RNA: Lysine riboswitch aptamer
Organism: Psychrobacillus sp. FJAT-21963
RNA sequence: UAGUGGGGUAGAGGCGCGAUAUUUAACAGUCCUUAGUGGAGUUUGAGAAGCCAUGAUUCUAGGGAGAAGGAAAUGUCGCCGAAGUUUGUAAUAGUUCUCGGUAUUACUUGCUGGGUCUGUAGUGAAUAACUACAGGACUGUCCGCUAUAAACAUCCCGGUUUAUAGUGGUGUGCUAUCUCAUUU
Number, nucleotide and partner (000 for none) at each position: 001u000002a000003g000004u000005g000006g179007g178008g177009u176010a175011g174012a000013g000014g000015c000016g079017c078018g077019a076020u075021a074022u073023u072024u071025a000026a000027c000028a000029g000030u000031c064032c063033u062034u061035a060036g059037u000038g057039g000040a000041g000042u000043u000044u000045g000046a000047g000048a000049a000050g000051c000052c000053a000054u000055g000056a000057u038058u000059c036060u035061a034062g033063g032064g031065a000066g000067a000068a000069g000070g000071a024072a023073a022074u021075g020076u019077c018078g017079c016080c000081g000082a000083a112084g111085u110086u000087u000088g107089u106090a105091a104092u103093a102094g000095u000096u000097c000098u000099c000100g000101g000102u093103a092104u091105u090106a089107c088108u000109u000110g085111c084112u083113g139114g138115g000116u136117c135118u134119g133120u132121a131122g130123u129124g000125a000126a000127u000128a000129a123130c122131u121132a120133c119134a118135g117136g116137a000138c114139u113140g000141u000142c169143c168144g167145c166146u165147a164148u163149a162150a161151a160152c000153a000154u000155c000156c000157c000158g000159g000160u151161u150162u149163a148164u147165a146166g145167u144168g143169g142170u000171g000172u000173g000174c011175u010176a009177u008178c007179u006180c000181a000182u000183u000184u000